RNA: L31-Corynebacteriaceae ribosomal protein leader
Organism: Corynebacterium sp. KPL1995
RNA sequence: ACCUGGGUGCGAUCUUCGGUGUUUUGCACUGCGUGGUGUGACUGACCUCUGUCAUGUAGUGGGGAACGUCGCCGUAAGCAGUGGCCCGAAGAACCGGCCCAGUUACAAACCUUAGGGA
Dot-bracket structure: ((.((((.....(((((((.......((((((.............................................))))))..))))))).....))))))...............
Numbered sequence: 001a002c003c004u005g006g007g008u009g010c011g012a013u014c015u016u017c018g019g020u021g022u023u024u025u026g027c028a029c030u031g032c033g034u035g036g037u038g039u040g041a042c043u044g045a046c047c048u049c050u051g052u053c054a055u056g057u058a059g060u061g062g063g064g065a066a067c068g069u070c071g072c073c074g075u076a077a078g079c080a081g082u083g084g085c086c087c088g089a090a091g092a093a094c095c096g097g098c099c100c101a102g103u104u105a106c107a108a109a110c111c112u113u114a115g116g117g118a
Stems, first nucleotide, its partner, number of pairs: 001103002004101004013092007027083006